RNA sequence: AGGUCAUUUCAAAGAGGAAUUUGGGGCCUGAAACCAAGAGCUCUUAAUGCUGUGAUCAAAUAUUGAAAUUCUCCAUAGGAUAUAAUAGUUACUCCAUAGUGCCAUGGUUUCCUGAGGAGAUAGAAGA
Numbered sequence: 001a002g003g004u005c006a007u008u009u010c011a012a013a014g015a016g017g018a019a020u021u022u023g024g025g026g027c028c029u030g031a032a033a034c035c036a037a038g039a040g041c042u043c044u045u046a047a048u049g050c051u052g053u054g055a056u057c058a059a060a061u062a063u064u065g066a067a068a069u070u071c072u073c074c075a076u077a078g079g080a081u082a083u084a085a086u087a088g089u090u091a092c093u094c095c096a097u098a099g100u101g102c103c104a105u106g107g108u109u110u111c112c113u114g115a116g117g118a119g120a121u122a123g124a125a126g127a
Stems, first nucleotide, its partner, number of pairs: 002057006014045004020039003025035002070120005077113004085105002088102001090101004
RNA: Small nucleolar RNA SNORA25